[Rfam]
RNA sequence: CCAACGUGGAUACCCCGGGAGGUCACUCUCCCCGGGCUCUGUCCAGGUGGCGUACGGGAGCAUAGGGUUCUGCCCGGUAAUGUACAGUCCCUUUCCACAACGUUGGAGAUGAAGCUGGGCCUUGAGUCUGCGCCUGCAUAUUCCUACGUCUUCUCAGAGUCCUGUGGACAAUGACUGAGGAGAAAAACCAUGCAGAAAACAGCU
Dot-bracket structure: ((((((((((((.(((.((((....))))....)))...)))))..((((.....(((((.((((............)..))).)..))))...)))).)))))))...........................((((((..........((((((...((((...)))).......)))))).......)))))).........